The family of this 76-nucleotide RNA from Gasterosteus aculeatus is "mir-202 microRNA precursor family". It scores 92 bits against the family's covariance model. A reference for the family is Bentwich et al. (2005), "Identification of hundreds of conserved and nonconserved human microRNAs", Nat Genet. Rfam 15.1 lists 673 matches to the family in 631 species.
[Rfam]
RNA sequence: CUGUUCCUUUUUCCUAUGCAUAUACCUUUUUCAGAUGUAACUUUAAAGAGGUAUAGGGCAUGGGAAAAUGGGGCUG
Numbered sequence: 001c002u003g004u005u006c007c008u009u010u011u012u013c014c015u016a017u018g019c020a021u022a023u024a025c026c027u028u029u030u031u032c033a034g035a036u037g038u039a040a041c042u043u044u045a046a047a048g049a050g051g052u053a054u055a056g057g058g059c060a061u062g063g064g065a066a067a068a069u070g071g072g073g074c075u076g
Base pairs, nucleotide, nucleotide: 010067011066012065013064014063015062016061017060018059019058021055022054023053025051026050027049028048029047030046031045